This 359-nucleotide RNA from Pseudomonas sp. SSM44 belongs to the Rfam family "Bacterial RNase P class A". The family's consensus secondary structure is taken from published work. The match comes from Rfam's covariance-model search (337 bits).
RNA sequence: AGAGUUGGCUGGACAGUCGCUGUGUUGGCACCGCAAGGCGUCGGCAGGGAGGAAAGUCCGGGCUCCAUAGGGCAGAGUGCCAGGUAACGCCUGGGAGGCGUGAGCCUACGGAAAGUGCAGCAGAGAGCAAACCGCCUAAGCGCGUAAGCGCCGGUAAGGGUGAAAAGGUGCGGUAAGAGCGCACCGCGCAGCUGGUAACAGUCUGUGGCGUGGUAAACCCCACUCGGAGCAAGACCAAAUAGGAAUCCAUUGGUGUGGCCCGCACUGGAUUCGGGUAGGUUGCUUGAGGUUGUCAGUGAUGGCAAUCCCAGAGGAAUGACUGUUCUCGACAGAACCCGGCUUAUAGGCCAACUCUUAUU
Dot-bracket structure: ((((((((((((((((((.((.((((((............)))))).))....[[[.[[[[[((((...[[[[.((((((((((.....)))))(((((....)))).)((...((((.............(((((...((((....)))).)))..)).......((((((.......))))))(((((((((....))).))))).)...))..)))))))))))))...((((......((((((...(((((.]]]]))))))))))).....))))......((((((((....))))))))..........)))))))..........]]]]]]]].).))))))))))....
Description
Lineage of the source: Bacteria > Pseudomonadota > Pseudomonadales > Pseudomonadaceae > Pseudomonas. By type it is a ribozyme.